[Rfam]
RNA: small nucleolar RNA snoR127
Organism: Lactuca saligna
RNA sequence: CUGGAAUGAUGCAACUUAGCCAAAUCAGACAUUGAUGUGCUCCAUAGCGAUGGAUGGUUGAAGUCAACUUACACUUGACAUCCUUAUGUUGAAGCGCAUCUCUCUGAUGAUAAAACAGAGAUGGGUUUCUAGCUGACCAGA
Numbered sequence: 001c002u003g004g005a006a007u008g009a010u011g012c013a014a015c016u017u018a019g020c021c022a023a024a025u026c027a028g029a030c031a032u033u034g035a036u037g038u039g040c041u042c043c044a045u046a047g048c049g050a051u052g053g054a055u056g057g058u059u060g061a062a063g064u065c066a067a068c069u070u071a072c073a074c075u076u077g078a079c080a081u082c083c084u085u086a087u088g089u090u091g092a093a094g095c096g097c098a099u100c101u102c103u104c105u106g107a108u109g110a111u112a113a114a115a116c117a118g119a120g121a122u123g124g125g126u127u128u129c130u131a132g133c134u135g136a137c138c139a140g141a
Base pairs, nucleotide, nucleotide: 001140002139003138004137